[Rfam]
RNA: Small nucleolar RNA snoR100
Organism: Setaria italica
RNA sequence: GGAGGAAGGAAGCAUGGUAGUGUGCACGGAGAGCACCAGCGGGUCUGCAUGUCUGCUCGCCGUGACGCCUUCGGGCUUUGAUCGUGCGGGCCUGGAUUCGACCCACAUUU
Number, nucleotide and partner (000 for none) at each position: 001g000002g000003a000004g000005g000006a000007a000008g000009g000010a000011a000012g025013c024014a023015u022016g000017g000018u000019a000020g000021u000022g015023u014024g013025c012026a000027c000028g000029g000030a000031g000032a000033g000034c000035a000036c000037c000038a000039g000040c000041g093042g092043g091044u090045c089046u000047g000048c000049a000050u000051g082052u081053c080054u000055g076056c075057u074058c000059g000060c000061c000062g000063u000064g000065a000066c000067g000068c000069c000070u000071u000072c000073g000074g057075g056076c055077u000078u000079u000080g053081a052082u051083c000084g000085u000086g000087c000088g000089g045090g044091c043092c042093u041094g000095g000096a000097u000098u000099c000100g000101a000102c000103c000104c000105a000106c000107a000108u000109u000110u000